RNA sequence: CUGCGGGGAUGAUCACCCUGAACUCUCUCUUGCUGAUGGGCCAGUGAAGUUUCACUCACACUCUUUUCUGAGUAGC
Numbered sequence: 001c002u003g004c005g006g007g008g009a010u011g012a013u014c015a016c017c018c019u020g021a022a023c024u025c026u027c028u029c030u031u032g033c034u035g036a037u038g039g040g041c042c043a044g045u046g047a048a049g050u051u052u053c054a055c056u057c058a059c060a061c062u063c064u065u066u067u068c069u070g071a072g073u074a075g076c
Stems, first nucleotide, its partner, number of pairs: 001075004
The record is a 76-nucleotide RNA sequence from Illadopsis cleaveri, which matches "Small nucleolar RNA SNORD26" in Rfam. The match comes from Rfam's covariance-model search (54 bits). The source organism's lineage runs through Eukaryota, Chordata, Gnathostomata, Neoaves and Illadopsis.